[Rfam]
c-di-GMP-I riboswitch aptamer: an 87-nucleotide sequence from Tolumonas auensis.
RNA sequence: CUCCCGAAACGGCAAACUCCGGGUAACCGGAUGUACGCAAAGCCACAGGUCCUUUUGAGUCAUCAUCAGGACAGCUGAGCUACCGAA
Number, nucleotide and partner (000 for none) at each position: 001c000002u000003c000004c000005c000006g000007a000008a000009a000010c000011g000012g038013c037014a000015a000016a000017c033018u031019c030020c029021g028022g027023g000024u000025a000026a000027c022028c021029g020030g019031a018032u000033g017034u000035a000036c000037g013038c012039a000040a000041a081042g080043c079044c000045a000046c077047a076048g075049g072050u071051c070052c000053u000054u000055u000056u065057g064058a063059g000060u000061c000062a000063u058064c057065a056066u000067c000068a000069g000070g051071a050072c049073a000074g000075c048076u047077g046078a000079g043080c042081u041082a000083c000084c000085g000086a000087a000